[Rfam]
RNA sequence: GGCAGCACCGGGAGAGCGACCCGGCAGCUGGCAGAUAAAGCCUCCUUGGCACGAGCGAUUACCAGGGAGAGCUUUCUGCGAUCUUUAGAUGUCUUAAAACACAUGGAGUAUUUGACUCAAAGGUAUGUGCCGUUGCGAGCUUUGUUAUACGUAAUCGCAUCGCUCGGGGCAAACAUCGUUUUCCUCGCGGUUCCGUGGUCCCA
Numbered sequence: 001g002g003c004a005g006c007a008c009c010g011g012g013a014g015a016g017c018g019a020c021c022c023g024g025c026a027g028c029u030g031g032c033a034g035a036u037a038a039a040g041c042c043u044c045c046u047u048g049g050c051a052c053g054a055g056c057g058a059u060u061a062c063c064a065g066g067g068a069g070a071g072c073u074u075u076c077u078g079c080g081a082u083c084u085u086u087a088g089a090u091g092u093c094u095u096a097a098a099a100c101a102c103a104u105g106g107a108g109u110a111u112u113u114g115a116c117u118c119a120a121a122g123g124u125a126u127g128u129g130c131c132g133u134u135g136c137g138a139g140c141u142u143u144g145u146u147a148u149a150c151g152u153a154a155u156c157g158c159a160u161c162g163c164u165c166g167g168g169g170c171a172a173a174c175a176u177c178g179u180u181u182u183c184c185u186c187g188c189g190g191u192u193c194c195g196u197g198g199u200c201c202c203a
Stems, first nucleotide, its partner, number of pairs: 003030004008024005031079005037073001042069008051060001149196003153192006166186004171181003

The record is a 203-nucleotide RNA from Parasynechococcus marenigrum, which matches "Cyano-2 RNA" in Rfam. It is one of the family's seed sequences. Pairs were carried over by alignment from the consensus structure, which is taken from published work.